LOOT RNA: a 115-nucleotide RNA. The family's RNA type in Rfam is small RNA. The sequence is in the family's curated seed alignment.
RNA sequence: AGCCUAAACUCCUUAAAAGGAGCAUGGCACAAAUCCGGUAAAGGGUAUUAAGCUCCUCGUCGAGCACCUUUACCGGUCAUAUGCCGAAAGGUAUAUGGGUGGUCGCAAGACUAUC
Numbered sequence: 001a002g003c004c005u006a007a008a009c010u011c012c013u014u015a016a017a018a019g020g021a022g023c024a025u026g027g028c029a030c031a032a033a034u035c036c037g038g039u040a041a042a043g044g045g046u047a048u049u050a051a052g053c054u055c056c057u058c059g060u061c062g063a064g065c066a067c068c069u070u071u072a073c074c075g076g077u078c079a080u081a082u083g084c085c086g087a088a089a090g091g092u093a094u095a096u097g098g099g100u101g102g103u104c105g106c107a108a109g110a111c112u113a114u115c
Stems, first nucleotide, its partner, number of pairs: 002028003009022005035076010052065004078097008098115006